RNA sequence: UGCAGUUUGUGUUGUAAGUCGCUCUGGAUAAGAGUGUCUGCUAAAUGUCUAUAA
Numbered sequence: 001u002g003c004a005g006u007u008u009g010u011g012u013u014g015u016a017a018g019u020c021g022c023u024c025u026g027g028a029u030a031a032g033a034g035u036g037u038c039u040g041c042u043a044a045a046u047g048u049c050u051a052u053a054a
Base pairs, nucleotide, nucleotide: 013043014041015040016039020036021035022034023033024032025031